[Rfam]
RNA sequence: AUUUAACAUGUGCACACCCGCGCGGAAGCCGGGGUCGCAAAGUCAUAGGGUCUUCCGUCCUGACGCGCGUCGGGACCAGAUAGCCUGACUGCCCGU
Numbered sequence: 001a002u003u004u005a006a007c008a009u010g011u012g013c014a015c016a017c018c019c020g021c022g023c024g025g026a027a028g029c030c031g032g033g034g035u036c037g038c039a040a041a042g043u044c045a046u047a048g049g050g051u052c053u054u055c056c057g058u059c060c061u062g063a064c065g066c067g068c069g070u071c072g073g074g075a076c077c078a079g080a081u082a083g084c085c086u087g088a089c090u091g092c093c094c095g096u
Stems, first nucleotide, its partner, number of pairs: 012038002017033004022029002041090004047086003050081003057076008
About this RNA: A member of the RNA family "c-di-GMP-I riboswitch aptamer" from Alicyclobacillaceae bacterium I2511, 96 nucleotides long. GEMM was predicted in a large-scale screen for bacterial structured RNA regulatory elements. Genes associated with GEMM are involved in a diverse array of functions, including chemotaxis regulation, signal transduction, secretion and chitin.